[Rfam]
RNA sequence: CGUUGAUAUGAUGAUAAAAUUUCUCGGAAAUAAAAAAAAUUUAAUGUGUCGACACGAAAAAUCAGACUACAAUUAUCUGAUCAGCG
Numbered sequence: 001c002g003u004u005g006a007u008a009u010g011a012u013g014a015u016a017a018a019a020u021u022u023c024u025c026g027g028a029a030a031u032a033a034a035a036a037a038a039a040u041u042u043a044a045u046g047u048g049u050c051g052a053c054a055c056g057a058a059a060a061a062u063c064a065g066a067c068u069a070c071a072a073u074u075a076u077c078u079g080a081u082c083a084g085c086g
Base pairs, nucleotide, nucleotide: 001086002085003084004083005082006081
RNA: Small nucleolar RNA Z155